[Rfam]
RNA sequence: CGAAACGAACAGCUCAGGACAGUGGCGGGGAACCCAGGUUCCUCGGGACCCACCAUGCCCGGAUCCACGGGUUGCGGCAGGUCCCUCGGGGUGAAGCCGGCGACAGCCGGCCGGGCGCUCACGAUCCCCAGGCACGGGCCGAUGGUCCGCGCCGGCGUCCGAACCCGACAGCUCACCUCGUAGGCGCAGCUAGGGGAAGA
Numbered sequence: 001c002g003a004a005a006c007g008a009a010c011a012g013c014u015c016a017g018g019a020c021a022g023u024g025g026c027g028g029g030g031a032a033c034c035c036a037g038g039u040u041c042c043u044c045g046g047g048a049c050c051c052a053c054c055a056u057g058c059c060c061g062g063a064u065c066c067a068c069g070g071g072u073u074g075c076g077g078c079a080g081g082u083c084c085c086u087c088g089g090g091g092u093g094a095a096g097c098c099g100g101c102g103a104c105a106g107c108c109g110g111c112c113g114g115g116c117g118c119u120c121a122c123g124a125u126c127c128c129c130a131g132g133c134a135c136g137g138g139c140c141g142a143u144g145g146u147c148c149g150c151g152c153c154g155g156c157g158u159c160c161g162a163a164c165c166c167g168a169c170a171g172c173u174c175a176c177c178u179c180g181u182a183g184g185c186g187c188a189g190c191u192a193g194g195g196g197a198a199g200a
Stems, first nucleotide, its partner, number of pairs: 001183001005023002025181006035088001089166003097110004113160007
A member of the RNA family "c-di-AMP riboswitch aptamer (ydaO/yuaA leader)" from Nakamurella leprariae, 200 nucleotides long.